[Rfam]
RNA sequence: UCAAUCAGCGAGGGGUGCCGACUGCCAGCCAUGGACGAGUUCCAUGCGUUGGCCGGCUGAGAUGAGACCCUUAGAACCUGAUCCGGGUCAUACCGGCGGAGGGACUGCUGCUCUUCUUGUUG
Numbered sequence: 001u002c003a004a005u006c007a008g009c010g011a012g013g014g015g016u017g018c019c020g021a022c023u024g025c026c027a028g029c030c031a032u033g034g035a036c037g038a039g040u041u042c043c044a045u046g047c048g049u050u051g052g053c054c055g056g057c058u059g060a061g062a063u064g065a066g067a068c069c070c071u072u073a074g075a076a077c078c079u080g081a082u083c084c085g086g087g088u089c090a091u092a093c094c095g096g097c098g099g100a101g102g103g104a105c106u107g108c109u110g111c112u113c114u115u116c117u118u119g120u121u122g
Base pairs, nucleotide, nucleotide: 006110007109008108009107010106011071012070013069014068016065017057018056019055020054077102078101079100083096084095085094086093
This 122-nucleotide sequence belongs to the Rfam family "TPP riboswitch aptamer (THI element)".